The family of this 80-nucleotide RNA sequence from Genlisea aurea is "Small nucleolar RNA R12". Rfam describes the family as follows. snoR12 is a C/D box small nucleolar RNA, which acts as a methylation guide for 25S ribosomal RNA in plants. snoR12 has been alternatively named snoZ44 in Arabidopsis and snoZ131 in rice. On this family, see Chen et al., Nucleic Acids Res 2003: "The high diversity of snoRNAs in plants: identification and comparative study of 120 snoRNA genes from Oryza sativa". Rfam links the family to the GO terms nucleolus and RNA processing. It scores 74 bits against the family's covariance model. It is annotated as a C/D-box small nucleolar RNA.
[Rfam]
Nucleotides: 080
Base pairs, nucleotide, nucleotide: 001080002079003078004077005076
Number, partner (000 for none) and nucleotide at each position: 001080u002079u003078g004077g005076g006000g007000a008000u009000g010000a011000a012000g013000a014000a015000c016000a017000a018000a019000a020000u021000c022000a023000g024000a025000c026000g027000g028000a029000u030000u031000c032000c033000c034000a035000c036000u037000g038000a039000g040000u041000u042000u043000u044000g045000u046000c047000u048000g049000u050000g051000a052000u053000a054000u055000g056000a057000a058000a059000u060000a061000a062000c063000c064000a065000g066000c067000u068000a069000c070000u071000u072000c073000u074000g075000a076005c077004c078003c079002a080001a